[Rfam]
RNA: Makes More Granules Regulator RNA (mmgR)
RNA sequence: ACGUCAUGCCCUUCCUGGGCGUUUCCUCCCUAUUAAACUUGCCGCGGCUCUGAGCCGCGGCUUUUUUUUGGGGCUA
Numbered sequence: 001a002c003g004u005c006a007u008g009c010c011c012u013u014c015c016u017g018g019g020c021g022u023u024u025c026c027u028c029c030c031u032a033u034u035a036a037a038c039u040u041g042c043c044g045c046g047g048c049u050c051u052g053a054g055c056c057g058c059g060g061c062u063u064u065u066u067u068u069u070g071g072g073g074c075u076a
Stems, first nucleotide, its partner, number of pairs: 008020004041061009